Rfam assigns this 57-nucleotide RNA sequence from Lacticaseibacillus sharpeae to the family "Ribosomal protein L13 leader". This family is a putative r-protein leader autoregulatory structure found in B. subtilis and other low-GC Gram-positive bacteria. It is located in the 5' untranslated regions of mRNAs encoding the L13-S9 (rplM-rpsI) ribosomal protein operon. Rfam links the family to the GO term regulation of gene expression.

RNA sequence: GGUAUUGUUUGCCCCACGUAAGCCCCGGAAAUCUUACAAGUGUCAAACAAACACAGA
Numbered sequence: 001g002g003u004a005u006u007g008u009u010u011g012c013c014c015c016a017c018g019u020a021a022g023c024c025c026c027g028g029a030a031a032u033c034u035u036a037c038a039a040g041u042g043u044c045a046a047a048c049a050a051a052c053a054c055a056g057a
Stems, first nucleotide, its partner, number of pairs: 006053006015040001018037005